RNA sequence: CAUCGUGCUUGACCUUCCAUGCUCCCGUGUCCAGUAGCAGACAGGUUUUCCGACACAGGCUUCGGGAUUUAGGAUAGCGCAUCAUG
Numbered sequence: 001c002a003u004c005g006u007g008c009u010u011g012a013c014c015u016u017c018c019a020u021g022c023u024c025c026c027g028u029g030u031c032c033a034g035u036a037g038c039a040g041a042c043a044g045g046u047u048u049u050c051c052g053a054c055a056c057a058g059g060c061u062u063c064g065g066g067a068u069u070u071a072g073g074a075u076a077g078c079g080c081a082u083c084a085u086g
Stems, first nucleotide, its partner, number of pairs: 001086003005082004009077003013073003016067003020064002024059002027056005036047003

mir-604 microRNA precursor family: an 86-nucleotide RNA sequence from Aotus nancymaae. Rfam 15.1 lists 31 matches to the family in 21 species.